[Rfam]
RNA sequence: UCACGCACAGGGCAAACCAAUCUGAAAAGUUGGGACGCAAAGCCACCGGCCUACACAUUUUAUAUGCACGGCAGCGGGGUUACCGAU
Numbered sequence: 001u002c003a004c005g006c007a008c009a010g011g012g013c014a015a016a017c018c019a020a021u022c023u024g025a026a027a028a029g030u031u032g033g034g035a036c037g038c039a040a041a042g043c044c045a046c047c048g049g050c051c052u053a054c055a056c057a058u059u060u061u062a063u064a065u066g067c068a069c070g071g072c073a074g075c076g077g078g079g080u081u082a083c084c085g086a087u
Stems, first nucleotide, its partner, number of pairs: 012038002017033004022029002041081004046077003049072003056066003
Dot-bracket structure: ...........((...((((.((....))))))...))..((((.((((((....(((.....)))...)))..)))))))......